[Rfam]
Metazoan signal recognition particle RNA: a 297-nucleotide sequence from Racocetra fulgida. About the family: The signal recognition particle (SRP) is a universally conserved ribonucleoprotein. The family's consensus secondary structure is taken from published work. The match comes from Rfam's covariance-model search (83 bits). The source organism's lineage runs through Eukaryota, Glomeromycotina, Glomeromycetes, Gigasporaceae and Racocetra.

RNA sequence: GUUGAUCAAUUUGGCAGUUGACUGUAACUCUGCUUCUAGAAAACAGGAUGGUGAAUUAACCCUCACUUGGGUUUACAGCUUUUUGUACCAUACAUUGAGAGUAGUGUUUCACUUGAACCUAAUGUGAAUAUUCUGAUCUAAAUAUAAAUUUGAAUCAGAAGGUUUUAAAUAGCAGGGAUAAUGCUUGAGACUAGAAACAGAGCAAGAAAAACUUGCAGUAUUGGAUGACAGUGAGGUAGCAUACUUAAGUGAUUGGUUGUAGAGAUUGCUAAGUAAAAUAGUUGAACUGUCAUCCUU
Numbered sequence: 001g002u003u004g005a006u007c008a009a010u011u012u013g014g015c016a017g018u019u020g021a022c023u024g025u026a027a028c029u030c031u032g033c034u035u036c037u038a039g040a041a042a043a044c045a046g047g048a049u050g051g052u053g054a055a056u057u058a059a060c061c062c063u064c065a066c067u068u069g070g071g072u073u074u075a076c077a078g079c080u081u082u083u084u085g086u087a088c089c090a091u092a093c094a095u096u097g098a099g100a101g102u103a104g105u106g107u108u109u110c111a112c113u114u115g116a117a118c119c120u121a122a123u124g125u126g127a128a129u130a131u132u133c134u135g136a137u138c139u140a141a142a143u144a145u146a147a148a149u150u151u152g153a154a155u156c157a158g159a160a161g162g163u164u165u166u167a168a169a170u171a172g173c174a175g176g177g178a179u180a181a182u183g184c185u186u187g188a189g190a191c192u193a194g195a196a197a198c199a200g201a202g203c204a205a206g207a208a209a210a211a212c213u214u215g216c217a218g219u220a221u222u223g224g225a226u227g228a229c230a231g232u233g234a235g236g237u238a239g240c241a242u243a244c245u246u247a248a249g250u251g252a253u254u255g256g257u258u259g260u261a262g263a264g265a266u267u268g269c270u271a272a273g274u275a276a277a278a279u280a281g282u283u284g285a286a287c288u289g290u291c292a293u294c295c296u297u
Base pairs, nucleotide, nucleotide: 001044002043003042004023006021007020008019009018010017011016029040030039046295047294048293049292050291051290052289053288056285057284058283059282060281063276065274066273067272068271069270070269076268077267078266080264081263082262083261087257088256089255090254091251092250093249095247099246100245101244102243103242107235108234110233111232112231113230115229117226119224120223121222122221123220124219125218126165127164128163129162131160132159133158134157135156136155137154139152140151141150142149143148172216173215174214175213176212182209185206186205191200192199